[Rfam]
RNA sequence: GAGACACCCUGAUGGGGCAGGACUUGCAUCAAUGGGGCUUUAGUACUCACUGAGUCUUCCCCUUGAGUGUGUCACA
Numbered sequence: 001g002a003g004a005c006a007c008c009c010u011g012a013u014g015g016g017g018c019a020g021g022a023c024u025u026g027c028a029u030c031a032a033u034g035g036g037g038c039u040u041u042a043g044u045a046c047u048c049a050c051u052g053a054g055u056c057u058u059c060c061c062c063u064u065g066a067g068u069g070u071g072u073c074a075c076a
Base pairs, nucleotide, nucleotide: 001075003073004072005071006070007069009067010066012064014062015061016060017059019057021056022055023054029053030052031051033049034048035047036046037044038043
RNA: mir-9229 microRNA precursor family
Organism: Myotis lucifugus